Rfam assigns this 132-nucleotide RNA sequence from Falsochrobactrum ovis to the family "Alphaproteobacterial sRNA ar35". For this family Rfam cites "A survey of sRNA families in alpha-proteobacteria" (del Val et al., RNA Biol, 2012). The family has 13 seed sequences and 266 matches in Rfam 15.1. Taxonomically the source falls in Falsochrobactrum (Bacteria, Pseudomonadati, Hyphomicrobiales, Brucellaceae).

[Rfam]
RNA sequence: UAGGCGAUGUAGUGCGCAGUUAAUCUUUGCGCGUCGUAUGCCUCAUCAAUUGAACUUUUGACCACGGAUGUACUGGCAGGAGUGGAAAUUGAUGGUGAGAAGGUCGGUGCGUUUCGCCCGGCCUUUUUUUAA
Numbered sequence: 001u002a003g004g005c006g007a008u009g010u011a012g013u014g015c016g017c018a019g020u021u022a023a024u025c026u027u028u029g030c031g032c033g034u035c036g037u038a039u040g041c042c043u044c045a046u047c048a049a050u051u052g053a054a055c056u057u058u059u060g061a062c063c064a065c066g067g068a069u070g071u072a073c074u075g076g077c078a079g080g081a082g083u084g085g086a087a088a089u090u091g092a093u094g095g096u097g098a099g100a101a102g103g104u105c106g107g108u109g110c111g112u113u114u115c116g117c118c119c120g121g122c123c124u125u126u127u128u129u130u131a132a
Base pairs, nucleotide, nucleotide: 003042004041005040006039007037008036009035014032015031016030017029018028045093046092047091048090049089050088051087054083055082056081059078060077062076063075064074095130097128098127099126100125101124102123103122104121105120106119107118109117110116111115